[Rfam]
RNA sequence: GCAUACCUGCGUACUCAAGACCGCUCUCUAGGGUUCGGUCCACUAAGCAGGUGGGAAAUUCGGUGAAACACAUUUCUUUGAGAUACUCUUCUUCCCUUGAGGGUUCCAUCUAUUAUGGUGGGCUACGUGGAAACGUGGAGCGGCAUCAUCAGAAAACAGGGGGGCCACUAGGUCUCCCAUGGGAGCUGUGCUGCAAGAAAUUGGGCCGGUCCACGACGCAGUUCGCUGCCUCCUGGGCCGAGUCGCUUAAGUGCAAUGCGCCAUUCGUCUGGGGCUCAACCGGGCGAAACUCGAUACCGAUCAUGAAUGC
Dot-bracket structure: (((((((((.........(((((............))))).......)))))........(((((............................(((....)))...................((((((....)))))).(((((((..............(((............))).........)))))))......................................................................(((((((.........))))))).......))))).......))))
A member of the RNA family "Nuclear RNase P" from Geotrichum candidum, 310 nucleotides long. About the family: Ribonuclease P (RNase P) is a ubiquitous endoribonuclease, found in archaea, bacteria and eukarya as well as chloroplasts and mitochondria. The organism belongs to Geotrichum, within Eukaryota. By type it is a ribozyme. The family is grouped with related families in Rfam's "RNaseP clan".